Rfam assigns this 135-nucleotide RNA sequence from Otolemur garnettii to the family "Small nucleolar RNA SNORA15".
RNA sequence: GCAUAGCUGAAUACUAUGUUCUUUUAUCAGUAGUUUACAUAGCUAGACACCAUGCAAAAACAGUCUUCCCUUUUAAAAUGACUGAUAAUAUGCUAAGUUAUUUCAUGGUAUAUCAUUAUUAAAGGUGAAAAACGU
Numbered sequence: 001g002c003a004u005a006g007c008u009g010a011a012u013a014c015u016a017u018g019u020u021c022u023u024u025u026a027u028c029a030g031u032a033g034u035u036u037a038c039a040u041a042g043c044u045a046g047a048c049a050c051c052a053u054g055c056a057a058a059a060a061c062a063g064u065c066u067u068c069c070c071u072u073u074u075a076a077a078a079u080g081a082c083u084g085a086u087a088a089u090a091u092g093c094u095a096a097g098u099u100a101u102u103u104c105a106u107g108g109u110a111u112a113u114c115a116u117u118a119u120u121a122a123a124g125g126u127g128a129a130a131a132a133c134g135u
Stems, first nucleotide, its partner, number of pairs: 001055004006050001014042006066129003069125003073122004083118004088113008
Annotation: The base pairs follow the family's consensus structure, which was predicted with RNAfold. ACA15 is a member of the H/ACA class of snoRNA that guide the sites of modification of uridines to pseudouridines. The match comes from Rfam's covariance-model search (119 bits). Taxonomically the source falls in Otolemur (Eukaryota, Chordata, Gnathostomata, Boreoeutheria). The family's RNA type in Rfam is H/ACA-box small nucleolar RNA.